[Rfam]
RNA: serC leader
RNA sequence: CUGCGGGCUAUCCCUCCCCAACGGGGGACGUCUAUUCUGCAAGGAGUAGGAGAA
Numbered sequence: 001c002u003g004c005g006g007g008c009u010a011u012c013c014c015u016c017c018c019c020a021a022c023g024g025g026g027g028a029c030g031u032c033u034a035u036u037c038u039g040c041a042a043g044g045a046g047u048a049g050g051a052g053a054a
Stems, first nucleotide, its partner, number of pairs: 011028006032049003036045003